Source information
Shown here is a 35-nucleotide sequence from Lynx pardinus, a member of the family "Iron response element I". It scores 34 bits against the family's covariance model. The organism belongs to Lynx, within Eukaryota. Rfam 15.1 lists 6,829 matches to the family in 599 species. Rfam links the family to the GO term response to iron ion. The literature on the family includes a 1987 paper in Science by Hentze et al., "Identification of the iron-responsive element for the translational regulation of human ferritin mRNA".

[Rfam]
RNA sequence: CUGUCUCUUGCUUCAACAGUGCCUGGAUGGAAUGG
Numbered sequence: 001c002u003g004u005c006u007c008u009u010g011c012u013u014c015a016a017c018a019g020u021g022c023c024u025g026g027a028u029g030g031a032a033u034g035g
Stems, first nucleotide, its partner, number of pairs: 001035004006031003010028001012027004017021001